[Rfam]
This 191-nucleotide RNA sequence from Carya illinoinensis belongs to the Rfam family "small nucleolar RNA snoR127".
Rfam 15.1 lists 273 matches to the family in 170 species.
On this family, see Chen and Wu, Nucleic Acids Res 2009: "Mining small RNA sequencing data: a new approach to identify small nucleolar RNAs in Arabidopsis".
The family's consensus secondary structure was predicted with RNAalifold.
RNA sequence: CUGGGAUGAUGUUGCUUAGCCAAAUCAGAUAUUGAUGUGCUCCUUAAGGCAUUGUCUUGAAAGCUUGUACUUGGUAUUGUAGAGGCACACUGGGUCUCUUACAUACUCUUGAUCAAGCAUUAGACAAGAAUGCCUUCUGUCGAAGCAUAUUGCUGUGACGUCAAAAUAGGGAUUGGUUGUUCCUGACCAGA
Numbered sequence: 001c002u003g004g005g006a007u008g009a010u011g012u013u014g015c016u017u018a019g020c021c022a023a024a025u026c027a028g029a030u031a032u033u034g035a036u037g038u039g040c041u042c043c044u045u046a047a048g049g050c051a052u053u054g055u056c057u058u059g060a061a062a063g064c065u066u067g068u069a070c071u072u073g074g075u076a077u078u079g080u081a082g083a084g085g086c087a088c089a090c091u092g093g094g095u096c097u098c099u100u101a102c103a104u105a106c107u108c109u110u111g112a113u114c115a116a117g118c119a120u121u122a123g124a125c126a127a128g129a130a131u132g133c134c135u136u137c138u139g140u141c142g143a144a145g146c147a148u149a150u151u152g153c154u155g156u157g158a159c160g161u162c163a164a165a166a167u168a169g170g171g172a173u174u175g176g177u178u179g180u181u182c183c184u185g186a187c188c189a190g191a
Base pairs, nucleotide, nucleotide: 001190002189003188004187